[Rfam]
RNA sequence: CUUCCUUCGGCAGUGUAGUUAGCUGGUUGUUUUCGACCAAUCACCAACCAGCUUGCUGCAGGGCCCCAGGAAG
Numbered sequence: 001c002u003u004c005c006u007u008c009g010g011c012a013g014u015g016u017a018g019u020u021a022g023c024u025g026g027u028u029g030u031u032u033u034c035g036a037c038c039a040a041u042c043a044c045c046a047a048c049c050a051g052c053u054u055g056c057u058g059c060a061g062g063g064c065c066c067c068a069g070g071a072a073g
Stems, first nucleotide, its partner, number of pairs: 002072005009065002014060006021053002024050006031043001
RNA: mir-34 microRNA precursor family